[Rfam]
RNA sequence: UUGCAUCCAGUAGGAAUUGAACUUACAACUUUGCCAAUUAUGAGUUGGACGCUUAAAUCAUUCAACCAUGGAUGC
Dot-bracket structure: ..((((((.(((((.......))))).............(((.((((((.(.......).)))))))))))))))
Numbered sequence: 001u002u003g004c005a006u007c008c009a010g011u012a013g014g015a016a017u018u019g020a021a022c023u024u025a026c027a028a029c030u031u032u033g034c035c036a037a038u039u040a041u042g043a044g045u046u047g048g049a050c051g052c053u054u055a056a057a058u059c060a061u062u063c064a065a066c067c068a069u070g071g072a073u074g075c
Stems, first nucleotide, its partner, number of pairs: 003075006010026005040069003044066006051059001
Plastid-ycf2 5UTR RNA: a 75-nucleotide sequence from Gossypium anomalum. It scores 90 bits against the family's covariance model. The source organism's lineage runs through Eukaryota, Streptophytina, Magnoliopsida, eudicotyledons and Gossypium. It is annotated as a cis-regulatory element. For this family Rfam cites "Retrograde signaling in plants: A critical review focusing on the GUN pathway and beyond" (Richter et al., Plant Commun, 2023). From the family's description: Plastid ycf2 is a non-coding RNA (ncRNA) recognised in plastids. It was found in the prime untranslated region (5UTR) of ycf2 genes, it presents a tRNA-like motif which suggests it can be involved in mRNA maturation, particularly involved in defining the precise 5' end of the transcript.